[Rfam]
RNA sequence: UCCCCUAAGCCUCUUUACAAUGCUCAAAUCUGGGGAC
Dot-bracket structure: (((((..(((...........))).......))))).
RNA: abiF RNA